[Rfam]
Nucleotides: 085
Stems, first nucleotide, its partner, number of pairs: 001085005012027004029073003032069002036067002039065001043060007
Number, partner (000 for none) and nucleotide at each position: 001085c002084u003083c004082u005081g006000g007000a008000g009000a010000a011000u012027g013026g014025c015024g016000c017000u018000a019000a020000a021000a022000g023000g024015c025014g026013c027012c028000u029073a030072c031071c032069g033068a034000a035000g036067g037066g038000c039065u040000u041000a042000a043060c044059u045058c046057g047056u048055g049054a050000c051000a052000a053000a054049u055048c056047a057046c058045g059044g060043g061000g062000a063000a064000u065039a066037u067036c068033u069032c070000a071031g072030g073029u074000a075000u076000c077000a078000g079000g080000a081005c082004a083003g084002a085001g